[Rfam]
RNA sequence: GCCCUUUCCCCGCCGCGACGGCUCACCUAUAUUGGGAGUGCCGUCGCAAGACGGCUAUGGCGAUAAACGAGCGGUGUAAUACGCCUUUCGGACCCGGGGGCAGUACCCGGCGCCUCCACCCGAGCCCAUCGGACGGUCCCAGGACGGAUCGGCGGCGGUGGGUUCCGGCGGGGGCGAACUAGGAUCGACGAGGGUCUAAAAACCGAUCUUUUGCCCGGCAUGAUACCGCCGUUAUCGGGUCAAACUAUAGUUGCCAACGACAACUAUGCUCCGGUUGCAGUGGCCGCGUGAGCGGUUUCUGACUCCGGUUACAAGUCCUGACGUGUAGCAGCGAUCAGGCGGGGUUCGGAGGCACCCGGCAACAGAAGCCUCCACU
Numbered sequence: 001g002c003c004c005u006u007u008c009c010c011c012g013c014c015g016c017g018a019c020g021g022c023u024c025a026c027c028u029a030u031a032u033u034g035g036g037a038g039u040g041c042c043g044u045c046g047c048a049a050g051a052c053g054g055c056u057a058u059g060g061c062g063a064u065a066a067a068c069g070a071g072c073g074g075u076g077u078a079a080u081a082c083g084c085c086u087u088u089c090g091g092a093c094c095c096g097g098g099g100g101c102a103g104u105a106c107c108c109g110g111c112g113c114c115u116c117c118a119c120c121c122g123a124g125c126c127c128a129u130c131g132g133a134c135g136g137u138c139c140c141a142g143g144a145c146g147g148a149u150c151g152g153c154g155g156c157g158g159u160g161g162g163u164u165c166c167g168g169c170g171g172g173g174g175c176g177a178a179c180u181a182g183g184a185u186c187g188a189c190g191a192g193g194g195u196c197u198a199a200a201a202a203c204c205g206a207u208c209u210u211u212u213g214c215c216c217g218g219c220a221u222g223a224u225a226c227c228g229c230c231g232u233u234a235u236c237g238g239g240u241c242a243a244a245c246u247a248u249a250g251u252u253g254c255c256a257a258c259g260a261c262a263a264c265u266a267u268g269c270u271c272c273g274g275u276u277g278c279a280g281u282g283g284c285c286g287c288g289u290g291a292g293c294g295g296u297u298u299c300u301g302a303c304u305c306c307g308g309u310u311a312c313a314a315g316u317c318c319u320g321a322c323g324u325g326u327a328g329c330a331g332c333g334a335u336c337a338g339g340c341g342g343g344g345u346u347c348g349g350a351g352g353c354a355c356c357c358g359g360c361a362a363c364a365g366a367a368g369c370c371u372c373c374a375c376u
Stems, first nucleotide, its partner, number of pairs: 040055005059215005069208002072205004084194003088191003094110005111176007216231004221242003226238002342357004348373006
The record is a 376-nucleotide sequence from Siculibacillus lacustris, which matches "Alphaproteobacteria transfer-messenger RNA" in Rfam.
Pairs were carried over by alignment from the consensus structure, which is taken from published work.
It scores 292 bits against the family's covariance model.
The source organism's lineage runs through Bacteria, Pseudomonadati, Pseudomonadota, Ancalomicrobiaceae and Siculibacillus.
Rfam's curators write: Bacterial tmRNA, also known as 10Sa RNA or SsrA, is named for its dual tRNA and mRNA-like properties. Its role is to liberate the mRNA from a stalled ribosome. To accomplish this part of the tmRNA is used as a reading frame that ends in a translation stop signal. The broken mRNA is replaced in the ribosome by the tmRNA and translation of the tmRNA leads to addition of a proteolysis tag to the incomplete protein enabling recognition by a protease.
By type it is a non-coding RNA gene.